[Rfam]
This 104-nucleotide RNA from Piscibacillus halophilus belongs to the Rfam family "TPP riboswitch aptamer (THI element)".
RNA sequence: GGAACGCACUAGGGGAGCUGUAUUUAACGGCUGAGAGGGCAAAUGCCCGACCCUUAUGACCCGAUCUAGAUAAUACUAGCGUGGGGAAGUGUAGUGAAGCUGUA
Numbered sequence: 001g002g003a004a005c006g007c008a009c010u011a012g013g014g015g016a017g018c019u020g021u022a023u024u025u026a027a028c029g030g031c032u033g034a035g036a037g038g039g040c041a042a043a044u045g046c047c048c049g050a051c052c053c054u055u056a057u058g059a060c061c062c063g064a065u066c067u068a069g070a071u072a073a074u075a076c077u078a079g080c081g082u083g084g085g086g087a088a089g090u091g092u093a094g095u096g097a098a099g100c101u102g103u104a
Stems, first nucleotide, its partner, number of pairs: 006092005011054004017031005038047003060085004066079004

It scores 79 bits against the family's covariance model.